[Rfam]
RNA: Bacillaceae-1 RNA
Organism: Aneurinibacillus soli
RNA sequence: UAUAAAGGAGCAUCGGCUAAAAUCGCAACGUCCUGUUGCAACGCCGAUGUUCGCACAUCCAUGUGCA
Number, nucleotide and partner (000 for none) at each position: 001u000002a000003u000004a000005a000006a000007g000008g000009a000010g000011c049012a048013u047014c046015g045016g044017c043018u000019a000020a000021a000022a000023u000024c000025g039026c038027a037028a036029c035030g000031u000032c000033c000034u000035g029036u028037u027038g026039c025040a000041a000042c000043g017044c016045c015046g014047a013048u012049g011050u000051u000052c000053g066054c065055a064056c063057a000058u000059c000060c000061a000062u000063g056064u055065g054066c053067a000